[Rfam]
RNA sequence: GUGUUUUUCAUGGUAUUAGAUUUAAGGUUAACUAAGAUUGGUUGUCGAGAUGACAAUCAAUUUCUUUUUU
Numbered sequence: 001g002u003g004u005u006u007u008u009c010a011u012g013g014u015a016u017u018a019g020a021u022u023u024a025a026g027g028u029u030a031a032c033u034a035a036g037a038u039u040g041g042u043u044g045u046c047g048a049g050a051u052g053a054c055a056a057u058c059a060a061u062u063u064c065u066u067u068u069u070u
Stems, first nucleotide, its partner, number of pairs: 040058007

A member of the RNA family "Bacteroidetes FopS (family of paralogous sRNAs)" from Duncaniella freteri, 70 nucleotides long. On this family, see Ruttiger et al., Nat Commun 2025: "The global RNA-binding protein RbpB is a regulator of polysaccharide utilization in Bacteroides thetaiotaomicron". The organism belongs to Duncaniella, within Bacteria. The match comes from Rfam's covariance-model search (79 bits). By type it is a small RNA. Rfam describes the family as follows. The RNA-binding protein RbpB and BTncRNA_FopS sRNA are involved in the post-transcription regulation of polysaccharide utilisation loci (PUL). FopS sRNAs function as post-transcriptional repressors by binding to the vicinity of the start codon of the first mRNA of target PUL polycistrons, typically corresponding to the cognate SusC homolog, impeding translation of the respective glycan transporter. The base pairs follow the family's consensus structure, which is taken from published work.